[Rfam]
RNA sequence: CUUCUUUCUACUACAUCGACCUGUGCCAGAACUCCUGUCCACCCUCACGGGUGUGUUCGGUCGUAGUUCUGGCAGUUCGUUCGCCCCCAAGGAGCCAUCACAGUUUUCAUGAUGUCAAUUUCCGGACGACAGGUCUGAGAGAGAGUCGGUAGCGUUCUGAAGCCUGAGUUCACCGCAAGGUUCGAGCUCGGUGGAUGGCGUUGCCAGGGCGAAUUGAUUCCACUCCCUUUUGCUAGGCCGUCGGCCAAUUAUGCUUGGGAAAAACCCAGUCUUGCCUACAUCA
Numbered sequence: 001c002u003u004c005u006u007u008c009u010a011c012u013a014c015a016u017c018g019a020c021c022u023g024u025g026c027c028a029g030a031a032c033u034c035c036u037g038u039c040c041a042c043c044c045u046c047a048c049g050g051g052u053g054u055g056u057u058c059g060g061u062c063g064u065a066g067u068u069c070u071g072g073c074a075g076u077u078c079g080u081u082c083g084c085c086c087c088c089a090a091g092g093a094g095c096c097a098u099c100a101c102a103g104u105u106u107u108c109a110u111g112a113u114g115u116c117a118a119u120u121u122c123c124g125g126a127c128g129a130c131a132g133g134u135c136u137g138a139g140a141g142a143g144a145g146u147c148g149g150u151a152g153c154g155u156u157c158u159g160a161a162g163c164c165u166g167a168g169u170u171c172a173c174c175g176c177a178a179g180g181u182u183c184g185a186g187c188u189c190g191g192u193g194g195a196u197g198g199c200g201u202u203g204c205c206a207g208g209g210c211g212a213a214u215u216g217a218u219u220c221c222a223c224u225c226c227c228u229u230u231u232g233c234u235a236g237g238c239c240g241u242c243g244g245c246c247a248a249u250u251a252u253g254c255u256u257g258g259g260a261a262a263a264a265c266c267c268a269g270u271c272u273u274g275c276c277u278a279c280a281u282c283a
Stems, first nucleotide, its partner, number of pairs: 018135007025073005031067003034063001035060003039055001040053005082128002085125002091116002094113001096111001147203002152199001162192003166189006173180002208276003211271002214269003226259003232254002236246004
RNA: A. fumigatus sRNA Afu_309
Organism: Periconia digitata